[Rfam]
The record is a 133-nucleotide sequence from Loxodonta africana, which matches "Small nucleolar RNA SNORA70" in Rfam. Rfam links the family to the GO terms nucleolus and RNA processing. For this family Rfam cites "Pseudouridine in RNA: what, where, how, and why" (Charette and Gray, IUBMB Life, 2000). Rfam classes the family as an H/ACA-box small nucleolar RNA. snoRNA U70 seems to be exclusive to mammals and is a member of the H/ACA class of snoRNA which contain H (ANANNA) and ACA box motifs. The family has 43 seed sequences and 5,173 matches in Rfam 15.1.
RNA sequence: CUGCAGCCAAUUAAGCCGACUGUCCUCCUUUCCUGUGGGGGCCAGUGUGCAAUGGCUGCAAACAGCAGCUUCCUCGGUAGUGUAUGCAACCUGUUGCAUGUACGGGUUGCCCUAAGGGACCUUGGAGACAGCA
Numbered sequence: 001c002u003g004c005a006g007c008c009a010a011u012u013a014a015g016c017c018g019a020c021u022g023u024c025c026u027c028c029u030u031u032c033c034u035g036u037g038g039g040g041g042c043c044a045g046u047g048u049g050c051a052a053u054g055g056c057u058g059c060a061a062a063c064a065g066c067a068g069c070u071u072c073c074u075c076g077g078u079a080g081u082g083u084a085u086g087c088a089a090c091c092u093g094u095u096g097c098a099u100g101u102a103c104g105g106g107u108u109g110c111c112c113u114a115a116g117g118g119a120c121c122u123u124g125g126a127g128a129c130a131g132c133a
Stems, first nucleotide, its partner, number of pairs: 002051004019046004025040004076121003087109006